[Rfam]
The record is a 55-nucleotide sequence from Oncorhynchus mykiss, which matches "U7 small nuclear RNA" in Rfam. A search with the family's covariance model found it, with a score of 47 bits. Taxonomically the source falls in Oncorhynchus (Eukaryota, Teleostomi, Teleostei, Osteoglossocephalai).
RNA sequence: GAAAAUUAGCUAUUUUAGUAUUUGUCCAGUAGGUUUCCUCAGAGAGGAAGCCCCA
Numbered sequence: 001g002a003a004a005a006u007u008a009g010c011u012a013u014u015u016u017a018g019u020a021u022u023u024g025u026c027c028a029g030u031a032g033g034u035u036u037c038c039u040c041a042g043a044g045a046g047g048a049a050g051c052c053c054c055a
Stems, first nucleotide, its partner, number of pairs: 032052008